[Rfam]
The family of this 140-nucleotide RNA from Drosophila gunungcola is "Small nucleolar RNA psi18S-841/snoR66". Rfam describes the family as follows. psi18S-841 is a member of the H/ACA class of snoRNA. This family is responsible for guiding the modification of uridine 841 in Drosophila 18S rRNA to pseudouridine. Taxonomically the source falls in elegans subgroup (in: flies) (Eukaryota, Mandibulata, Endopterygota, Drosophilinae).
RNA sequence: UGCAAACGCACUCUGUGUCACUUUGAUAUUUAGCCUCAUGUGAUGACAAUUUGACAGUUUGCCAGAUAAAGGAGAUGCGUCUUAUCCAUGUGGUCAAGUUUACACCAUGUUGCUCACAUUGAAAACGCCCCUAACACCAU
Number, nucleotide and partner (000 for none) at each position: 001u000002g062003c061004a060005a059006a058007c057008g000009c000010a000011c053012u000013c000014u048015g047016u046017g044018u043019c042020a041021c040022u000023u038024u000025g037026a036027u000028a000029u000030u000031u000032a000033g000034c000035c000036u026037c025038a023039u000040g021041u020042g019043a018044u017045g000046a016047c015048a014049a000050u000051u000052u000053g011054a000055c000056a000057g007058u006059u005060u004061g003062c002063c000064a000065g000066a000067u000068a000069a000070a000071g132072g131073a000074g130075a000076u000077g000078c127079g126080u000081c000082u000083u000084a000085u122086c121087c000088a119089u118090g117091u116092g115093g114094u000095c112096a000097a000098g000099u000100u000101u000102a000103c000104a000105c000106c000107a000108u000109g000110u000111u000112g095113c000114u093115c092116a091117c090118a089119u088120u000121g086122a085123a000124a000125a000126c079127g078128c000129c000130c074131c072132u071133a000134a000135c000136a000137c000138c000139a000140u000